Rfam assigns this 420-nucleotide part of an RNA from Bigelowiella natans to the family "Eukaryotic large subunit ribosomal RNA". The source organism's lineage runs through Eukaryota, Sar, Rhizaria, Chlorarachniophyceae and Bigelowiella. It is one of the family's seed sequences.
Nucleotides: 420
Stems, first nucleotide, its partner, number of pairs: 015033006034418004043398004049378002054078006063071002085374003089129002094123002098110001100109002133150005153370004159365003164359001170179003187344006196329004201324007209314003212232006236285005246275001248273003255266003292309001293307004384393002400412004
Number, partner (000 for none) and nucleotide at each position: 001000g002000g003000g004000a005000g006000u007000a008000g009000c010000g011000a012000a013000u014000a015033u016032u017031c018030a019029a020028a021000u022000g023000a024000g025000a026000a027000c028020u029019u030018u031017g032016a033015a034418g035417a036416c037415u038000g039000a040000a041000g042000u043398g044397g045396a046395g047000a048000a049378g050377g051000g052000u053000u054078c055077c056076g057075c058074g059073g060000g061000a062000a063071c064070a065000g066000c067000g068000u069000u070064u071063g072000g073059c074058c075057g076056c077055g078054g079000g080000u081000g082000a083000g084000u085374c086373g087372a088000u089129c090128c091000u092000a093000a094123g095122g096000a097000u098110u099000a100109g101108g102000g103000u104000a105000g106000c107000g108101c109100c110098g111000u112000a113000g114000c115000a116000u117000c118000c119000u120000c121000a122095u123094c124000g125000a126000a127000a128090g129089g130000g131000a132000a133150a134149a135148g136147g137146g138000u139000u140000a141000a142000u143000a144000u145000u146137c147136c148135c149134u150133u151000a152000c153370c154369u155368u156367g157000g158000a159365g160364g161363g162000a163000u164359c165000c166000g167000a168000a169000g170179g171178c172177g173000g174000c175000a176000a177172c178171g179170c180000a181000a182000g183000c184000g185000a186000g187344c188343u189342c190341g191340c192339a193000g194000a195000c196329g197328c198327u199326c200000g201324c202323c203322u204321u205320g206319a207318u208000c209314c210313c211312g212232g213231g214230a215229g216228g217227a218000g219000g220000u221000c222000u223000c224000u225000a226000c227217u228216c229215c230214u231213c232212u233000u234000g235000a236285u237284g238283c239282u240281u241000g242000u243000g244000g245000g246275g247000g248273c249272u250271u251000g252000g253000a254000g255266c256265a257264g258000g259000g260000u261000c262000a263000a264257c265256u266255g267000a268000g269000a270000a271250g272249g273248g274000g275246c276000u277000c278000c279000a280000c281240a282239a283238g284237c285236g286000g287000c288000a289000c290000a291000g292309c293307c294306u295305g296304u297000u298000c299000g300000a301000a302000a303000c304296a305295c306294g307293g308000g309292g310000u311000c312211c313210g314209g315000u316000g317000c318207a319206u320205c321204a322203g323202g324201g325000c326199g327198g328197g329196c330000c331000c332000a333000u334000g335000a336000a337000a338000a339192u340191g341190c342189g343188a344187g345000g346000g347000a348000g349000c350000g351000a352000c353000a354000a355000g356000g357000a358000u359164g360000c361000a362000c363161c364160u365159c366000c367156c368155a369154a370153g371000g372087u373086c374085g375000u376000a377050c378049c379000c380000a381000u382000a383000a384393c385392c386000g387000c388000a389000u390000c391000a392385g393384g394000u395046c396045u397044c398043c399000a400412a401411g402410g403409u404000g405000a406000g407000c408000a409403g410402c411401c412400u413000c414000u415037a416036g417035u418034c419000g420000a